MIR6152 microRNA precursor family: a 127-nucleotide RNA from Nicotiana sylvestris. The family has 2 seed sequences and 5,807 matches in Rfam 15.1. The source organism's lineage runs through Eukaryota, Spermatophyta, Gunneridae, Solanales and Nicotiana.
RNA sequence: UAGAUAGAUUAUUGUAUUCGACUUUAUUCACGAUAUGUAUUUGUGAAUACAGUAACAUAAAUUGCGCAAUUCAUGGUCUAUUCAGUUGUUUUAAACGGAAGUGAAUCAAUUAACAUAAUAGACUCCU
Numbered sequence: 001u002a003g004a005u006a007g008a009u010u011a012u013u014g015u016a017u018u019c020g021a022c023u024u025u026a027u028u029c030a031c032g033a034u035a036u037g038u039a040u041u042u043g044u045g046a047a048u049a050c051a052g053u054a055a056c057a058u059a060a061a062u063u064g065c066g067c068a069a070u071u072c073a074u075g076g077u078c079u080a081u082u083c084a085g086u087u088g089u090u091u092u093a094a095a096c097g098g099a100a101g102u103g104a105a106u107c108a109a110u111u112a113a114c115a116u117a118a119u120a121g122a123c124u125c126c127u
Stems, first nucleotide, its partner, number of pairs: 003125002009121007017113002020111002023108001026106006036094001037089003041085003